[Rfam]
Rfam assigns this 195-nucleotide sequence from Rosa chinensis to the family "MIR159 microRNA precursor family". The organism belongs to Rosa, within Eukaryota.
RNA sequence: AAUUAGAUAAGGGAGCUCCCUUCAGUCCAAGUACAGGAGGCUUAAGAUCCAAUUUGUCUCCCGCAUCAUUCACACAUUUACUGGGUCUGUCCUGAUCGAUCUAAUAACCCAGUAUUUGGAUGAAUGAGUCGGCAGCUAAUUGAAAUCUCACUGCCACCCAUGAGUGGACUGAAGAAAGCUCCCUUCCUUCAAUAC
Numbered sequence: 001a002a003u004u005a006g007a008u009a010a011g012g013g014a015g016c017u018c019c020c021u022u023c024a025g026u027c028c029a030a031g032u033a034c035a036g037g038a039g040g041c042u043u044a045a046g047a048u049c050c051a052a053u054u055u056g057u058c059u060c061c062c063g064c065a066u067c068a069u070u071c072a073c074a075c076a077u078u079u080a081c082u083g084g085g086u087c088u089g090u091c092c093u094g095a096u097c098g099a100u101c102u103a104a105u106a107a108c109c110c111a112g113u114a115u116u117u118g119g120a121u122g123a124a125u126g127a128g129u130c131g132g133c134a135g136c137u138a139a140u141u142g143a144a145a146u147c148u149c150a151c152u153g154c155c156a157c158c159c160a161u162g163a164g165u166g167g168a169c170u171g172a173a174g175a176a177a178g179c180u181c182c183c184u185u186c187c188u189u190c191a192a193u194a195c
Base pairs, nucleotide, nucleotide: 013181014180015179016178017177020174023171024170025169026168027167028166029165036158058135059134061132062131063130067126068125069124070123075118

Record summary:
The family's consensus secondary structure was predicted with WAR. The match comes from Rfam's covariance-model search (92 bits). For this family Rfam cites "Novel and stress-regulated microRNAs and other small RNAs from Arabidopsis" (Sunkar and Zhu, Plant Cell, 2004).